[Rfam]
A member of the RNA family "Fluoride riboswitch aptamer (crcB RNA motif)" from Gordonia aichiensis, 82 nucleotides long.
RNA sequence: CUCGUCGCGGGUGAUGGAUCUCGCCCGGGCAACACCGUGUGUGCCCGAACCGCCGUGCACGGCUGAUGGUUCCUGUUCCGGU
Numbered sequence: 001c002u003c004g005u006c007g008c009g010g011g012u013g014a015u016g017g018a019u020c021u022c023g024c025c026c027g028g029g030c031a032a033c034a035c036c037g038u039g040u041g042u043g044c045c046c047g048a049a050c051c052g053c054c055g056u057g058c059a060c061g062g063c064u065g066a067u068g069g070u071u072c073c074u075g076u077u078c079c080g081g082u
Stems, first nucleotide, its partner, number of pairs: 010025004016073003020069002052063004
Pairs were carried over by alignment from the consensus structure, which is taken from published work. Taxonomically the source falls in Gordonia aichiensis (Bacteria, Mycobacteriales, Gordoniaceae, Gordonia).